[Rfam]
RNA sequence: AGCAGAGUAGGCGUUUGUGCGUUAAGUGCCGGGUGAACGGGGAGUUGACACCCGGACGAAAAGCCGGAAGGCUUGCGGUACAGGCGCCGCAUCCCGCUGCU
Numbered sequence: 001a002g003c004a005g006a007g008u009a010g011g012c013g014u015u016u017g018u019g020c021g022u023u024a025a026g027u028g029c030c031g032g033g034u035g036a037a038c039g040g041g042g043a044g045u046u047g048a049c050a051c052c053c054g055g056a057c058g059a060a061a062a063g064c065c066g067g068a069a070g071g072c073u074u075g076c077g078g079u080a081c082a083g084g085c086g087c088c089g090c091a092u093c094c095c096g097c098u099g100c101u
Stems, first nucleotide, its partner, number of pairs: 001101005010088010020077003026057002029055007040094003044090001061074004